This 98-nucleotide RNA sequence from Rhododendron williamsianum belongs to the Rfam family "Small nucleolar RNA snoR100". Lineage of the source: Eukaryota > Gunneridae > asterids > Ericales > Rhododendron. Rfam links the family to the GO terms RNA processing and nucleolus.

RNA sequence: CAAUGAAGGAAGCAUGGUAAUGUGCUAUUGGGUCUCUAGGCCUGCCCUCUCUGAUGCCAUUUGGCUUUGAUUUGGAGGCAUGAUUUAGCAACAAAGCA
Numbered sequence: 001c002a003a004u005g006a007a008g009g010a011a012g013c014a015u016g017g018u019a020a021u022g023u024g025c026u027a028u029u030g031g032g033u034c035u036c037u038a039g040g041c042c043u044g045c046c047c048u049c050u051c052u053g054a055u056g057c058c059a060u061u062u063g064g065c066u067u068u069g070a071u072u073u074g075g076a077g078g079c080a081u082g083a084u085u086u087a088g089c090a091a092c093a094a095a096g097c098a
Base pairs, nucleotide, nucleotide: 012025013024014023015022030081032079033078034077040071042069044065045064046063